RNA sequence: GUCAACUGUUUCCAAAAAUACGAACAUAAUUUGUCGUAGCGUUACAAUAGAUAUUAUGCUCAUAUUUUUGGAUAUACGUUGUA
Numbered sequence: 001g002u003c004a005a006c007u008g009u010u011u012c013c014a015a016a017a018a019u020a021c022g023a024a025c026a027u028a029a030u031u032u033g034u035c036g037u038a039g040c041g042u043u044a045c046a047a048u049a050g051a052u053a054u055u056a057u058g059c060u061c062a063u064a065u066u067u068u069u070g071g072a073u074a075u076a077c078g079u080u081g082u083a
Stems, first nucleotide, its partner, number of pairs: 003081004011072010022061002025058005032053004